[Rfam]
RNA sequence: AUUAUCAUAUAGGGGGCCAUAGAAGAAGCGUUCACGUCGCGGCCCCUGUCAGGUAUCUGUUUACCUGCGAAUCCUUCU
Numbered sequence: 001a002u003u004a005u006c007a008u009a010u011a012g013g014g015g016g017c018c019a020u021a022g023a024a025g026a027a028g029c030g031u032u033c034a035c036g037u038c039g040c041g042g043c044c045c046c047u048g049u050c051a052g053g054u055a056u057c058u059g060u061u062u063a064c065c066u067g068c069g070a071a072u073c074c075u076u077c078u
Base pairs, nucleotide, nucleotide: 013046014045015044016043017042018041021078022077023076024075025074027072028040029039030038050067051066052065053064054063055062
RNA: Mammalian CPEB3 ribozyme
Organism: Laticauda laticaudata